[Rfam]
RNA sequence: UGAGUUUUCCAGGCGAUCGCGGUGAAAUGUACCGAGGUCUAUAUUUUAUUGGCUUGCUGGCGUUUUAUCGAGGAAAGUCCGGACUCCACAGAGUGCGGUGGUUGCUAACGGCAACCCGGAGCAAUCCGCGGGCAAGUGCCACAGAGAGAAGACCGCCCAGUAAUGGGUAAGGGUGAAAGGGUGCGGUAAGAGCGCACCAGCAUGGUAGGUGACUAUCGUGGCUAGGUAAACCCCACCGGGAGCAAGGUAAGAAGAUACGCAUUAAGCGUAUCUGCGCGGACGCUUGAAGGCUACUCGCUUGAUGUUCGCGGGUGACUGCUUGAGGCGAACUUCGUUCGUCCAGAUGGAUGAUCGCCACCGUGACAUAACGGUACAGAAUCCGGCUUAUCGGAAAACUCUUUCG
Number, nucleotide and partner (000 for none) at each position: 001u000002g398003a397004g396005u395006u394007u393008u392009c391010c390011a388012g356013g355014c354015g353016a352017u351018c350019g000020c070021g069022g068023u067024g066025a065026a064027a063028u062029g061030u060031a000032c000033c000034g000035a000036g000037g000038u000039c000040u000041a000042u000043a000044u000045u000046u000047u000048a000049u000050u000051g000052g000053c000054u000055u000056g000057c000058u000059g000060g030061c029062g028063u027064u026065u025066u024067a023068u022069c021070g020071a000072g000073g000074a000075a386076a385077g384078u000079c383080c382081g381082g380083a379084c242085u241086c240087c239088a000089c000090a000091g296092a295093g294094u293095g000096c238097g237098g236099u235100g234101g115102u114103u113104g112105c111106u000107a000108a000109c000110g000111g105112c104113a103114a102115c101116c130117c128118g127119g126120a125121g000122c000123a000124a000125u120126c119127c118128g117129c000130g116131g233132g232133c000134a000135a000136g231137u230138g227139c226140c225141a000142c000143a000144g000145a000146g000147a000148g000149a000150a000151g000152a000153c172154c171155g168156c167157c166158c165159a164160g000161u000162a000163a000164u159165g158166g157167g156168u155169a000170a000171g154172g153173g000174u000175g000176a000177a000178a000179g000180g198181g197182u196183g195184c194185g193186g000187u000188a000189a000190g000191a000192g000193c185194g184195c183196a182197c181198c180199a000200g222201c220202a219203u218204g217205g216206u215207a214208g213209g000210u000211g000212a000213c208214u207215a206216u205217c204218g203219u202220g201221g000222c200223u000224a000225g140226g139227u138228a000229a000230a137231c136232c132233c131234c100235a099236c098237c097238g096239g087240g086241a085242g084243c000244a000245a000246g317247g316248u315249a000250a000251g000252a000253a000254g000255a000256u000257a000258c000259g000260c000261a000262u000263u000264a000265a000266g000267c000268g000269u000270a000271u000272c000273u000274g000275c000276g309277c308278g307279g306280a305281c304282g000283c000284u000285u000286g000287a000288a300289g299290g298291c297292u000293a094294c093295u092296c091297g291298c290299u289300u288301g000302a000303u000304g281305u280306u279307c278308g277309c276310g000311g000312g000313u000314g000315a248316c247317u246318g000319c000320u000321u000322g000323a000324g340325g339326c338327g337328a336329a335330c334331u000332u000333c000334g330335u329336u328337c327338g326339u325340c324341c000342a000343g000344a000345u000346g000347g000348a000349u000350g018351a017352u016353c015354g014355c013356c012357a000358c000359c000360g000361u000362g000363a000364c000365a000366u000367a000368a000369c000370g000371g000372u000373a000374c000375a000376g000377a000378a000379u083380c082381c081382g080383g079384c077385u076386u075387a000388u011389c000390g010391g009392a008393a007394a006395a005396c004397u003398c002399u000400u000401u000402c000403g000
RNA: Bacterial RNase P class A
Organism: Corynebacterium sp. sy039